The family of this 51-nucleotide RNA is "L31-Gammaproteobacteria ribosomal protein leader".
[Rfam]
RNA sequence: CGUAUGGUGUUCAACUUCGGGUUGGAUAGCGAUGCGGCCUGACGAAAAGGU
Numbered sequence: 001c002g003u004a005u006g007g008u009g010u011u012c013a014a015c016u017u018c019g020g021g022u023u024g025g026a027u028a029g030c031g032a033u034g035c036g037g038c039c040u041g042a043c044g045a046a047a048a049g050g051u
Stems, first nucleotide, its partner, number of pairs: 001036005007030002011025006
Dot-bracket structure: (((((.((..((((((...))))))...)).)))))...............
Rfam classes the family as a cis-regulatory leader. The sequence is in the family's curated seed alignment.